[Rfam]
RNA sequence: UCGGCUCCGGUUCACCCGCGAAUCCCACGGGACCCGGCGGCC
Numbered sequence: 001u002c003g004g005c006u007c008c009g010g011u012u013c014a015c016c017c018g019c020g021a022a023u024c025c026c027a028c029g030g031g032a033c034c035c036g037g038c039g040g041c042c
Stems, first nucleotide, its partner, number of pairs: 003042003007037004015031004020026001
Shown here is a 42-nucleotide RNA sequence from Actinospineispora spinosispora, a member of the family "L31-Actinobacteria ribosomal protein leader". Rfam's curators put it in the seed alignment. The base pairs follow the family's consensus structure, which is taken from published work. It is annotated as a cis-regulatory leader. The source organism's lineage runs through Bacteria, Bacillati, Actinomycetota, Pseudonocardiaceae and Actinospineispora spinosispora.